[Rfam]
RNA sequence: GGGGCCGACUUGGAUUCGACGACGGUAACAAAGUUUUCUGGUGCAUGCCGUGAUGACAGCCAAUCACGUUAAUCCAAAGCUGUAUUUGUUAUAGUUGCAAACGACUCUAACUAUGAAGGUUACGCACUAGCUGCAUAAACCUUUAAUAGCGGUUCGCCCGCUAUCGGUCAUCAGCAAGGUGCCAGUAUCGCGCUGCUGACUGUCAUAUAGAACUGGAUCGUAACAAGGUUUGCUUGAGGCUGCGUUACUAAACUUUUAUCAAGAUCGCCAAUAACGUCCUGUCCCUCGGGCUGUUUGCGGUUAACUUAAUUGAGGGAGACUAAGCAUGUAGAGCCGAAAAUGGCGUACUGGCGGACGGGGGUUCAACUCCCCCCGGCUCCACCA
Numbered sequence: 001g002g003g004g005c006c007g008a009c010u011u012g013g014a015u016u017c018g019a020c021g022a023c024g025g026u027a028a029c030a031a032a033g034u035u036u037u038c039u040g041g042u043g044c045a046u047g048c049c050g051u052g053a054u055g056a057c058a059g060c061c062a063a064u065c066a067c068g069u070u071a072a073u074c075c076a077a078a079g080c081u082g083u084a085u086u087u088g089u090u091a092u093a094g095u096u097g098c099a100a101a102c103g104a105c106u107c108u109a110a111c112u113a114u115g116a117a118g119g120u121u122a123c124g125c126a127c128u129a130g131c132u133g134c135a136u137a138a139a140c141c142u143u144u145a146a147u148a149g150c151g152g153u154u155c156g157c158c159c160g161c162u163a164u165c166g167g168u169c170a171u172c173a174g175c176a177a178g179g180u181g182c183c184a185g186u187a188u189c190g191c192g193c194u195g196c197u198g199a200c201u202g203u204c205a206u207a208u209a210g211a212a213c214u215g216g217a218u219c220g221u222a223a224c225a226a227g228g229u230u231u232g233c234u235u236g237a238g239g240c241u242g243c244g245u246u247a248c249u250a251a252a253c254u255u256u257u258a259u260c261a262a263g264a265u266c267g268c269c270a271a272u273a274a275c276g277u278c279c280u281g282u283c284c285c286u287c288g289g290g291c292u293g294u295u296u297g298c299g300g301u302u303a304a305c306u307u308a309a310u311u312g313a314g315g316g317a318g319a320c321u322a323a324g325c326a327u328g329u330a331g332a333g334c335c336g337a338a339a340a341u342g343g344c345g346u347a348c349u350g351g352c353g354g355a356c357g358g359g360g361g362u363u364c365a366a367c368u369c370c371c372c373c374c375g376g377c378u379c380c381a382c383c384a
Stems, first nucleotide, its partner, number of pairs: 001380007020353002023350005033341005039336004044328005049068005056083005127156001129154006165202006172195004178189003182216005220248005233263004267301003273295004277290003281320003285314003357373005
Shown here is a 384-nucleotide sequence from Umboniibacter marinipuniceus, a member of the family "transfer-messenger RNA". Rfam describes the family as follows. Bacterial tmRNA, also known as 10Sa RNA or SsrA, is named for its dual tRNA and mRNA-like properties. It scores 189 bits against the family's covariance model. Its family is annotated with RNA catabolic process in the Gene Ontology. Taxonomically the source falls in Umboniibacter (Bacteria, Pseudomonadati, Pseudomonadota, Cellvibrionales).